[Rfam]
Rfam assigns this 103-nucleotide RNA sequence from Sulfurifustis variabilis to the family "TPP riboswitch aptamer (THI element)". From the family's description: Vitamin B(1) in its active form thiamin pyrophosphate (TPP) is an essential coenzyme that is synthesised by coupling of pyrimidine and thiazole moieties in bacteria. NCBI's taxonomy places the organism under Bacteria, Pseudomonadati, Pseudomonadota, Gammaproteobacteria, Sulfurifustis.
RNA sequence: ACCAACGGCUAGGGGUGCCCCGCGCGUCGCGCCGGGUGCUGAGACAUCACCCUUUGAACCUGAUCCGGGUAACUCCGGCGGAGGGAAGCUGUGGGCGGUCCGU
Number, nucleotide and partner (000 for none) at each position: 001a000002c000003c000004a000005a000006c091007g090008g089009c088010u087011a053012g052013g051014g050015g000016u000017g039018c038019c000020c036021c035022g000023c000024g000025c000026g000027u000028c000029g000030c000031g000032c000033c000034g000035g021036g020037u000038g018039c017040u000041g000042a000043g000044a000045c000046a000047u000048c000049a000050c014051c013052c012053u011054u000055u000056g000057a000058a000059c084060c083061u082062g000063a000064u000065c078066c077067g076068g075069g000070u000071a000072a000073c000074u000075c068076c067077g066078g065079c000080g000081g000082a061083g060084g059085g000086a000087a010088g009089c008090u007091g006092u000093g000094g000095g000096c000097g000098g000099u000100c000101c000102g000103u000